RNA sequence: GCUCUUUCAUUUCGUCGCGACACCACUUAUAUAGGUCUUGCUGGUUUCGGCCAGCUAUGGUGAUAAACGGACGAUACAAUAAGCCUAUUGGACCCGGGGGCGGUACCCGGCGCCUCCACCAGAGUGCAGUUGCAGGACUGCAUUGUGGCGGGGGCGAAAUAGGAUCGACAAGGGUGUAAAAAUCGCUCUUUUGCCCGGCAUAGUACCACCGUUAUCGGGCUAACUCAGUAGUUGCAAACGACAACUAUGCGGAAGCACGUCUCGCUGCUUAAUUGCGGUGUGAUCGCUUCAAAUUAAGUCCUAGGGGUUCGCACUUCUAGGCGGGGUUCGGAGGUACCUGGCAACAGAAACCUCCACU
Numbered sequence: 001g002c003u004c005u006u007u008c009a010u011u012u013c014g015u016c017g018c019g020a021c022a023c024c025a026c027u028u029a030u031a032u033a034g035g036u037c038u039u040g041c042u043g044g045u046u047u048c049g050g051c052c053a054g055c056u057a058u059g060g061u062g063a064u065a066a067a068c069g070g071a072c073g074a075u076a077c078a079a080u081a082a083g084c085c086u087a088u089u090g091g092a093c094c095c096g097g098g099g100g101c102g103g104u105a106c107c108c109g110g111c112g113c114c115u116c117c118a119c120c121a122g123a124g125u126g127c128a129g130u131u132g133c134a135g136g137a138c139u140g141c142a143u144u145g146u147g148g149c150g151g152g153g154g155c156g157a158a159a160u161a162g163g164a165u166c167g168a169c170a171a172g173g174g175u176g177u178a179a180a181a182a183u184c185g186c187u188c189u190u191u192u193g194c195c196c197g198g199c200a201u202a203g204u205a206c207c208a209c210c211g212u213u214a215u216c217g218g219g220c221u222a223a224c225u226c227a228g229u230a231g232u233u234g235c236a237a238a239c240g241a242c243a244a245c246u247a248u249g250c251g252g253a254a255g256c257a258c259g260u261c262u263c264g265c266u267g268c269u270u271a272a273u274u275g276c277g278g279u280g281u282g283a284u285c286g287c288u289u290c291a292a293a294u295u296a297a298g299u300c301c302u303a304g305g306g307g308u309u310c311g312c313a314c315u316u317c318u319a320g321g322c323g324g325g326g327u328u329c330g331g332a333g334g335u336a337c338c339u340g341g342c343a344a345c346a347g348a349a350a351c352c353u354c355c356a357c358u
Base pairs, nucleotide, nucleotide: 040055041054042053043052044051059195060194061193062192063191069188070187072185073184074183075182084174085173086172088171089170090169094110095109096108097107098106111156112155113154114153115152116151117150196211197210198209201222202221203220206218207217324339325338326337327336330355331354332353333352334351335350
The record is a 358-nucleotide sequence from Phyllobacterium myrsinacearum, which matches "Alphaproteobacteria transfer-messenger RNA" in Rfam. Bacterial tmRNA, also known as 10Sa RNA or SsrA, is named for its dual tRNA and mRNA-like properties. The family's RNA type in Rfam is non-coding RNA gene. The source organism's lineage runs through Bacteria, Pseudomonadati, Pseudomonadota, Hyphomicrobiales and Phyllobacterium.